[Rfam]
RNA sequence: CUACUCCCUCCGUCCCAUAAUGUAAGACAUUUUUUGACAUUAGUAUAGUGUCAAAAAGCGUCUUACAUUAUGGGACGGAGGGGGUAA
Numbered sequence: 001c002u003a004c005u006c007c008c009u010c011c012g013u014c015c016c017a018u019a020a021u022g023u024a025a026g027a028c029a030u031u032u033u034u035u036g037a038c039a040u041u042a043g044u045a046u047a048g049u050g051u052c053a054a055a056a057a058g059c060g061u062c063u064u065a066c067a068u069u070a071u072g073g074g075a076c077g078g079a080g081g082g083g084g085u086a087a
Base pairs, nucleotide, nucleotide: 003085004084005083007081008080009079010078011077013075014074015073016072017071019069020068021067022066023065024064025063026062027061028060030058031057032056033055034054035053036052037051038050039049040048041047
Dot-bracket structure: ..(((.(((((.(((((.((((((((((.((((((((((((.....)))))))))))).)))))))))).))))).))))).)))..
This 87-nucleotide RNA sequence from Triticum aestivum belongs to the Rfam family "MIR1120/MIR1122 microRNA precursor family". A search with the family's covariance model found it, with a score of 92 bits. NCBI's taxonomy places the organism under Eukaryota, Magnoliopsida, Mesangiospermae, commelinids, Triticum. The family's consensus secondary structure was predicted with RNAalifold. On this family, see Yao et al., Genome Biol 2007: "Cloning and characterization of microRNAs from wheat (Triticum aestivum L.)".